[Rfam]
Shown here is a 102-nucleotide RNA from Chlorocebus sabaeus, a member of the family "Y RNA".
RNA sequence: AGCUGGUCUGGUUGCAGUGGUGUUUACAACUAAUGGAUCACAACUAGUCAUGGAUUUCUUUGUUCCAUCUCCACUCCCACUUCUUCACUUGACUAGCCUUAA
Numbered sequence: 001a002g003c004u005g006g007u008c009u010g011g012u013u014g015c016a017g018u019g020g021u022g023u024u025u026a027c028a029a030c031u032a033a034u035g036g037a038u039c040a041c042a043a044c045u046a047g048u049c050a051u052g053g054a055u056u057u058c059u060u061u062g063u064u065c066c067a068u069c070u071c072c073a074c075u076c077c078c079a080c081u082u083c084u085u086c087a088c089u090u091g092a093c094u095a096g097c098c099u100u101a102a
Stems, first nucleotide, its partner, number of pairs: 002097007010090002014086001016081005022076001028064003032060002
Y RNAs are components of the Ro ribonucleoprotein particle (Ro RNP), in association with Ro60 and La proteins. The source organism's lineage runs through Eukaryota, Sarcopterygii, Tetrapoda, Haplorrhini and Chlorocebus. On this family, see Teunissen et al., Nucleic Acids Res 2000: "Conserved features of Y RNAs: a comparison of experimentally derived secondary structures". By type it is a non-coding RNA gene. Pairs were carried over by alignment from the consensus structure, which is taken from published work.